[Rfam]
RNA sequence: GCAUCCGAAUCUUUCCCACUCUUUGCAUUAUAGUGCUGGACUGGGGACACACGAUGCAACAGGAAAGCAGAGAAAAUCCAGACAAGCUCCCUUUCACCACAGCGGGACUUGUCUCUACGCCUUUGCGACAUUU
Numbered sequence: 001g002c003a004u005c006c007g008a009a010u011c012u013u014u015c016c017c018a019c020u021c022u023u024u025g026c027a028u029u030a031u032a033g034u035g036c037u038g039g040a041c042u043g044g045g046g047a048c049a050c051a052c053g054a055u056g057c058a059a060c061a062g063g064a065a066a067g068c069a070g071a072g073a074a075a076a077u078c079c080a081g082a083c084a085a086g087c088u089c090c091c092u093u094u095c096a097c098c099a100c101a102g103c104g105g106g107a108c109u110u111g112u113c114u115c116u117a118c119g120c121c122u123u124u125g126c127g128a129c130a131u132u133u
Stems, first nucleotide, its partner, number of pairs: 001057005013047006021039002067126006080114007094105002
The record is a 133-nucleotide RNA from Steatornis caripensis, which matches "Small nucleolar RNA SNORA55" in Rfam. By type it is an H/ACA-box small nucleolar RNA. Rfam describes the family as follows. ACA55 is a member of the H/ACA class of snoRNA that guide the sites of modification of uridines to pseudouridines. The match comes from Rfam's covariance-model search (103 bits). Gene Ontology terms of the family: RNA processing and nucleolus. The base pairs follow the family's consensus structure, which was predicted with PFOLD.